About this RNA
Shown here is a 65-nucleotide RNA sequence, a member of the family "S15-Flavobacteria ribosomal protein leader".
Nucleotides: 065
Base pairs, nucleotide, nucleotide: 012030013029014028015027016026017025
Number, partner (000 for none) and nucleotide at each position: 001000u002000a003000u004000a005000u006000u007000u008000g009000c010000a011000c012030g013029c014028a015027u016026u017025u018000u019000a020000g021000a022000a023000a024000a025017a026016a027015a028014u029013g030012c031000a032000u033000u034000u035000a036000c037000a038000u039000a040000a041000u042000a043000a044000u045000c046000a047000u048000u049000u050000a051000a052000a053000u054000a055000a056000u057000a058000u059000u060000g061000g062000c063000a064000u065000g
The family's consensus secondary structure is taken from published work. Its Rfam clan is "Ribosomal Protein S15 Leader clan". The literature on the family includes a 2020 paper in BMC Microbiol by Eckert and Weinberg, "Discovery of 20 novel ribosomal leader candidates in bacteria and archaea". Rfam's curators put it in the seed alignment.